[Rfam]
This 89-nucleotide RNA from Enterocloster lavalensis belongs to the Rfam family "Glycine riboswitch aptamer".
The base pairs follow the family's consensus structure.
It scores 57 bits against the family's covariance model.

RNA sequence: AUGAUGGAUCUGGGAGAGACCGGGCGGGAAUUGUCCCGGAGCCGAAGGGGAAGCGAAAAACUCUCAGGCAAAAGGACCAGAUACCGUAC
Numbered sequence: 001a002u003g004a005u006g007g008a009u010c011u012g013g014g015a016g017a018g019a020c021c022g023g024g025c026g027g028g029a030a031u032u033g034u035c036c037c038g039g040a041g042c043c044g045a046a047g048g049g050g051a052a053g054c055g056a057a058a059a060a061c062u063c064u065c066a067g068g069c070a071a072a073a074g075g076a077c078c079a080g081a082u083a084c085c086g087u088a089c
Base pairs, nucleotide, nucleotide: 006084008082009081010080011079012078013077020039021038022037023036041069042068043067044065045064048063049062050061
NCBI's taxonomy places the organism under Bacteria, Bacillati, Bacillota, Lachnospiraceae, Enterocloster.